[Rfam]
Source information: Rfam assigns this 95-nucleotide RNA from Treponema maltophilum to the family "TD-2 RNA". Its Rfam clan is "TD (Treponema denticola) motifs".
RNA sequence: UUCGGCACGGAUGCCGGGAAAGCCUUAUGUAACCGAGUUUGGCGAAGACAAACUCGAGGUGAAAAUCGUACAGGGAUGUACGACUUUCACACUGC
Numbered sequence: 001u002u003c004g005g006c007a008c009g010g011a012u013g014c015c016g017g018g019a020a021a022g023c024c025u026u027a028u029g030u031a032a033c034c035g036a037g038u039u040u041g042g043c044g045a046a047g048a049c050a051a052a053c054u055c056g057a058g059g060u061g062a063a064a065a066u067c068g069u070a071c072a073g074g075g076a077u078g079u080a081c082g083a084c085u086u087u088c089a090c091a092c093u094g095c
Stems, first nucleotide, its partner, number of pairs: 001018006034056008043047001059090006066083006